[Rfam]
RNA sequence: ACAGAUACUGUAAACAUCCUACACUCUCAGCUGUGGAAAUACAAAGCUGGGGGAAGGCUGUUUACUCUCUCUG
Numbered sequence: 001a002c003a004g005a006u007a008c009u010g011u012a013a014a015c016a017u018c019c020u021a022c023a024c025u026c027u028c029a030g031c032u033g034u035g036g037a038a039a040u041a042c043a044a045a046g047c048u049g050g051g052g053g054a055a056g057g058c059u060g061u062u063u064a065c066u067c068u069c070u071c072u073g
Stems, first nucleotide, its partner, number of pairs: 002073004010065007018057003024053009
Dot-bracket structure: .((((....(((((((.(((...(((((((((............))))))))).))).)))))))....))))
mir-30 microRNA precursor family: a 73-nucleotide RNA from Xenopus tropicalis.
Rfam links the family to the GO terms gene silencing by miRNA and RISC complex.
The source organism's lineage runs through Eukaryota, Opisthokonta, Vertebrata, Batrachia and Silurana.
The family's consensus secondary structure was predicted with PFOLD.
Rfam's curators write: This family consists of the mammalian microRNA (miRNA) precursor mir-30a. Animal miRNAs are transcribed as ~70nt precursors and subsequently processed by the Dicer enzyme to give a ~22nt product. In this case the mature sequence comes from both the 3' (miR-30) and 5' (mir-97-6) arms of the precursor. The extents of the hairpin precursors are not generally known and are estimated based on hairpin prediction.